The family of this 166-nucleotide RNA from Paenibacillus sp. J2TS4 is "M-box riboswitch aptamer (ykoK leader)". M-box riboswitch, also know as ykoK leader is described as a metaloregulatory RNA that sense divalent metals and function as a genetic control element of genes related to divalent metal transport in bacteria. A search with the family's covariance model found it, with a score of 145 bits.

RNA sequence: UGGAUUCCUCGCUAGGUGAGGCUCCUAUGUGGAGACAUGCUACUGCCCAGAAAUGUCGAAAGACUCCAAUGGGUCAACAGGAACCAUCGACUUAAGGUGGUUUUUAAUGUAGCUGGAUGCAUAUCCUAUGCCACAUAGUGCUAAAGCUCUGCGGGGGGGGUUUAUU
Numbered sequence: 001u002g003g004a005u006u007c008c009u010c011g012c013u014a015g016g017u018g019a020g021g022c023u024c025c026u027a028u029g030u031g032g033a034g035a036c037a038u039g040c041u042a043c044u045g046c047c048c049a050g051a052a053a054u055g056u057c058g059a060a061a062g063a064c065u066c067c068a069a070u071g072g073g074u075c076a077a078c079a080g081g082a083a084c085c086a087u088c089g090a091c092u093u094a095a096g097g098u099g100g101u102u103u104u105u106a107a108u109g110u111a112g113c114u115g116g117a118u119g120c121a122u123a124u125c126c127u128a129u130g131c132c133a134c135a136u137a138g139u140g141c142u143a144a145a146g147c148u149c150u151g152c153g154g155g156g157g158g159g160g161u162u163u164a165u166u
Base pairs, nucleotide, nucleotide: 007160008159009158010157011152012151013095015148016147017146020142021141022140025138026137027136028135029134030133031132032131039113040112041111042110043109045074046073047072048071049070055064056063057062080104081103082102083101086098087097088096115126116125117124